[Rfam]
RNA sequence: GCCAGCUAAUGACGGCUUGUGUAUCAACCCACAUGUUGGGGUAGACAAGUCUGAUGAUCACUGGC
Numbered sequence: 001g002c003c004a005g006c007u008a009a010u011g012a013c014g015g016c017u018u019g020u021g022u023a024u025c026a027a028c029c030c031a032c033a034u035g036u037u038g039g040g041g042u043a044g045a046c047a048a049g050u051c052u053g054a055u056g057a058u059c060a061c062u063g064g065c
Base pairs, nucleotide, nucleotide: 001065002064003063004062005061014051015050016049017048018047019046020045022043023042029039030038031037
The record is a 65-nucleotide RNA sequence from Pogona vitticeps, which matches "Selenocysteine insertion sequence 1" in Rfam. Taxonomically the source falls in Pogona (Eukaryota, Deuterostomia, Gnathostomata, Sarcopterygii). The family's RNA type in Rfam is cis-regulatory element. The family's consensus secondary structure is taken from published work.